The record is a 57-nucleotide sequence, which matches "L20-Deltaproteobacteria ribosomal protein leader" in Rfam. The sequence is in the family's curated seed alignment. The literature on the family includes a 2020 paper in BMC Microbiol by Eckert and Weinberg, "Discovery of 20 novel ribosomal leader candidates in bacteria and archaea". Pairs were carried over by alignment from the consensus structure, which is taken from published work. Rfam classes the family as a cis-regulatory leader.
RNA sequence: GCCCCAGAACCGUGAGGAAACGGCCCCUUGCGGAUCGGGUACCUAAAACUAAAGGAG
Numbered sequence: 001g002c003c004c005c006a007g008a009a010c011c012g013u014g015a016g017g018a019a020a021c022g023g024c025c026c027c028u029u030g031c032g033g034a035u036c037g038g039g040u041a042c043c044u045a046a047a048a049c050u051a052a053a054g055g056a057g
Stems, first nucleotide, its partner, number of pairs: 003039003007036002010033008